SAM (S-adenosyl methionine) riboswitch aptamer: a 114-nucleotide RNA sequence from Kocuria soli. Pairs were carried over by alignment from the consensus structure, which is taken from published work. On this family, see Weinberg et al., RNA 2008: "The aptamer core of SAM-IV riboswitches mimics the ligand-binding site of SAM-I riboswitches". Its family is annotated with S-adenosylmethionine metabolic process and regulation of gene expression in the Gene Ontology.
[Rfam]
RNA sequence: GAUGACGAGUCCCGGCGAAAAGCUCUGGCUGACCGGGCGGCAACCCUCUGACGUGGUGGGGUGCCCCAGAUGAACAUCCGGCUCCGGUCAACGGACCUGCGGCAAGCACGAACA
Numbered sequence: 001g002a003u004g005a006c007g008a009g010u011c012c013c014g015g016c017g018a019a020a021a022g023c024u025c026u027g028g029c030u031g032a033c034c035g036g037g038c039g040g041c042a043a044c045c046c047u048c049u050g051a052c053g054u055g056g057u058g059g060g061g062u063g064c065c066c067c068a069g070a071u072g073a074a075c076a077u078c079c080g081g082c083u084c085c086g087g088u089c090a091a092c093g094g095a096c097c098u099g100c101g102g103c104a105a106g107c108a109c110g111a112a113c114a
Base pairs, nucleotide, nucleotide: 001078002077003076004075009038011037012036013035014034015033021030022029039065040064041063044061045060046059048056049055081103082102083101085099086097087096088095089094
About the family: SAM-IV is a mRNA element that regulates gene expression via direct sensing of S-adenosylmethionine (SAM or AdoMet). SAM-IV riboswitches share conserved nucleotide positions with the previously described SAM-I riboswitches sequence analysis and molecular recognition experiments suggest that SAM-I and SAM-IV riboswitches share similar ligand binding sites, but have different scaffolds.